[Rfam]
RNA sequence: UACAAACUUCUGUUGUGAGUGGCACACAUAGGACAACUCGACUGCCCUUUGAGUGGAAUCGACAUUAAGAGAUUUCAGAAGCAUAAUUUUUUGGUAUUUGGGCUGCUGGUGAUGGUUGGUCCUGGUGCCCUU
Numbered sequence: 001u002a003c004a005a006a007c008u009u010c011u012g013u014u015g016u017g018a019g020u021g022g023c024a025c026a027c028a029u030a031g032g033a034c035a036a037c038u039c040g041a042c043u044g045c046c047c048u049u050u051g052a053g054u055g056g057a058a059u060c061g062a063c064a065u066u067a068a069g070a071g072a073u074u075u076c077a078g079a080a081g082c083a084u085a086a087u088u089u090u091u092u093g094g095u096a097u098u099u100g101g102g103c104u105g106c107u108g109g110u111g112a113u114g115g116u117u118g119g120u121c122c123u124g125g126u127g128c129c130c131u132u
Base pairs, nucleotide, nucleotide: 007081008080009079010078011024012023013022014021015020025053027051028050030048031047032046034044035043054077055076056075057074058073059072060071100130101129102128103127105126106125107124108123109122111121112120113119
The family of this 132-nucleotide sequence from Prolemur simus is "U11 spliceosomal RNA". Clan: U1 clan. It scores 84 bits against the family's covariance model. The base pairs follow the family's consensus structure, which is taken from published work. Gene Ontology terms of the family: U11 snRNP, pre-mRNA 5'-splice site binding and mRNA 5'-splice site recognition.